GlmZ RNA activator of glmS mRNA: a 202-nucleotide RNA sequence from Edwardsiella hoshinae. Lineage of the source: Bacteria > Pseudomonadota > Gammaproteobacteria > Hafniaceae > Edwardsiella. Its Rfam clan is "Glm clan". The family's consensus secondary structure is taken from published work. The family's RNA type in Rfam is small RNA. The match comes from Rfam's covariance-model search (125 bits).
RNA sequence: GUAGAUGCUCAUUCGUCCCCUUAUGUUUGCGUAAGCUUCAUAAAACUGAGAAUGAUGCAGAGCCGACUUGUGGUGCCUAUAGUCCGAAUCAUGCUGUUUGAGAUCAGCACGCCGCGGACACGUCGUUGAGUGAGGCACCGAUCAGUUGUCUUAAGAUCUGAUUGUCCUUUUUCAACACUUGCCUGCCGGCAGGUGUUUUUUU
Dot-bracket structure: ((...(((((((..............(.......)................)))).)))..))........(((((((...(((((......((((........))))......))))).............)))))))........(((....)))................((((((((((....)))))))))).....
Numbered sequence: 001g002u003a004g005a006u007g008c009u010c011a012u013u014c015g016u017c018c019c020c021u022u023a024u025g026u027u028u029g030c031g032u033a034a035g036c037u038u039c040a041u042a043a044a045a046c047u048g049a050g051a052a053u054g055a056u057g058c059a060g061a062g063c064c065g066a067c068u069u070g071u072g073g074u075g076c077c078u079a080u081a082g083u084c085c086g087a088a089u090c091a092u093g094c095u096g097u098u099u100g101a102g103a104u105c106a107g108c109a110c111g112c113c114g115c116g117g118a119c120a121c122g123u124c125g126u127u128g129a130g131u132g133a134g135g136c137a138c139c140g141a142u143c144a145g146u147u148g149u150c151u152u153a154a155g156a157u158c159u160g161a162u163u164g165u166c167c168u169u170u171u172u173c174a175a176c177a178c179u180u181g182c183c184u185g186c187c188g189g190c191a192g193g194u195g196u197u198u199u200u201u202u
Stems, first nucleotide, its partner, number of pairs: 001063002006059003009055004027035001072139007082119005093108004148157003174197010